About this RNA:
Shown here is a 141-nucleotide sequence from Ochotona princeps, a member of the family "Small Cajal body specific RNA 3". Clan: SCARNA3 clan. It is one of the family's seed sequences. The organism belongs to Ochotona, within Eukaryota. The literature on the family includes a 2002 paper in EMBO J by Darzacq et al., "Cajal body-specific small nuclear RNAs: a novel class of 2'-O-methylation and pseudouridylation guide RNAs". Its family is annotated with Cajal body, nucleolus and RNA processing in the Gene Ontology. Rfam's curators write: scaRNAs are a specific class of small nuclear RNAs which localise to the Cajal bodies and guide the modification of RNA polymerase II transcribed spliceosomal RNAs U1, U2, U4, U5 and U12.
RNA sequence: AAAGGAAGCUGCAGGAAAUUACCAUGUGGACAAAUGACAAAAAUCCUUUUGUCUACAGAUGGCAGCUUUCCUACAUGAAUAUGGGGGUCUCUGUCAGACUUCGGGCAGUUGGCUGAGUCUGAUCGUUCCCCUCCAGACAGC
Numbered sequence: 001a002a003a004g005g006a007a008g009c010u011g012c013a014g015g016a017a018a019u020u021a022c023c024a025u026g027u028g029g030a031c032a033a034a035u036g037a038c039a040a041a042a043a044u045c046c047u048u049u050u051g052u053c054u055a056c057a058g059a060u061g062g063c064a065g066c067u068u069u070c071c072u073a074c075a076u077g078a079a080u081a082u083g084g085g086g087g088u089c090u091c092u093g094u095c096a097g098a099c100u101u102c103g104g105g106c107a108g109u110u111g112g113c114u115g116a117g118u119c120u121g122a123u124c125g126u127u128c129c130c131c132u133c134c135a136g137a138c139a140g141c
Stems, first nucleotide, its partner, number of pairs: 004071003008066005025057007036048002083134005091125001093123003097119005103113001